A member of the RNA family "U7 small nuclear RNA" from Cnephaeus nilssonii, 61 nucleotides long. Lineage of the source: Eukaryota > Bilateria > Gnathostomata > Laurasiatheria > Cnephaeus. The match comes from Rfam's covariance-model search (34 bits). From the family's description: Animal histone pre-mRNAs are spliced by a different mechanism than nuclear pre-mRNAs and self-splicing introns.

[Rfam]
RNA sequence: AAGUGCUUACAGCUCGUUUUGAAUUUGUUCAGUAGAUCUUCCUGCUUUUACGGGAGGCACU
Numbered sequence: 001a002a003g004u005g006c007u008u009a010c011a012g013c014u015c016g017u018u019u020u021g022a023a024u025u026u027g028u029u030c031a032g033u034a035g036a037u038c039u040u041c042c043u044g045c046u047u048u049u050a051c052g053g054g055a056g057g058c059a060c061u
Stems, first nucleotide, its partner, number of pairs: 035058001037057006044051001